[Rfam]
RNA sequence: UCCUCAAUACAAAACUGGUUUUCACAGUGGUUUUACAGAUUGAUUUGAUUUCUGAGAUCAUUGUGAAAACUGAUUUUGUGAA
Numbered sequence: 001u002c003c004u005c006a007a008u009a010c011a012a013a014a015c016u017g018g019u020u021u022u023c024a025c026a027g028u029g030g031u032u033u034u035a036c037a038g039a040u041u042g043a044u045u046u047g048a049u050u051u052c053u054g055a056g057a058u059c060a061u062u063g064u065g066a067a068a069a070c071u072g073a074u075u076u077u078g079u080g081a082a
Stems, first nucleotide, its partner, number of pairs: 009079006016072010028060006
Record summary:
This 82-nucleotide RNA sequence from Mizuhopecten yessoensis belongs to the Rfam family "bantam microRNA precursor family". Its family is annotated with miRNA-mediated post-transcriptional gene silencing and RISC complex in the Gene Ontology.